[Rfam]
RNA sequence: AACUGAGGUAGAGGCGCGGAAUUUAAGAGUAAAACUGCAGAGGUAAGCACAAUGAAGCAGUUUAAAAGGAAAUUUCGCCGAAGCGUACAGUAAAUGCUUUAGUACUGUAUAGCUGGGAUUGCAUAGAAUAUAUGCAAGACUGUCACAAAGAGGAUUUUGUGGUGAGCUAUCAUUCGU
Numbered sequence: 001a002a003c004u005g006a007g008g009u010a011g012a013g014g015c016g017c018g019g020a021a022u023u024u025a026a027g028a029g030u031a032a033a034a035c036u037g038c039a040g041a042g043g044u045a046a047g048c049a050c051a052a053u054g055a056a057g058c059a060g061u062u063u064a065a066a067a068g069g070a071a072a073u074u075u076c077g078c079c080g081a082a083g084c085g086u087a088c089a090g091u092a093a094a095u096g097c098u099u100u101a102g103u104a105c106u107g108u109a110u111a112g113c114u115g116g117g118a119u120u121g122c123a124u125a126g127a128a129u130a131u132a133u134g135c136a137a138g139a140c141u142g143u144c145a146c147a148a149a150g151a152g153g154a155u156u157u158u159g160u161g162g163u164g165a166g167c168u169a170u171c172a173u174u175c176g177u
Stems, first nucleotide, its partner, number of pairs: 007171005016078009032063007082114003085110008115141002119137007143162007
The family of this 177-nucleotide sequence from Clostridium aciditolerans is "Lysine riboswitch aptamer". NCBI's taxonomy places the organism under Bacteria, Bacillati, Eubacteriales, Clostridiaceae, Clostridium. The match comes from Rfam's covariance-model search (124 bits). The family's consensus secondary structure is taken from published work.